Rfam assigns this 58-nucleotide RNA sequence from Saccharomonospora marina to the family "Actino-pnp RNA". By type it is a cis-regulatory element.
[Rfam]
RNA sequence: GCCGGUCCUCGGUAGUGGCUCCCGGGACAGUCCCCGAGAGCUUCGAUCGAUGACCGGC
Numbered sequence: 001g002c003c004g005g006u007c008c009u010c011g012g013u014a015g016u017g018g019c020u021c022c023c024g025g026g027a028c029a030g031u032c033c034c035c036g037a038g039a040g041c042u043u044c045g046a047u048c049g050a051u052g053a054c055c056g057g058c
Base pairs, nucleotide, nucleotide: 001058002057003056004055005054006053007052009050010049011048012047013046017042018041019040020039021038023036024035025034026033027031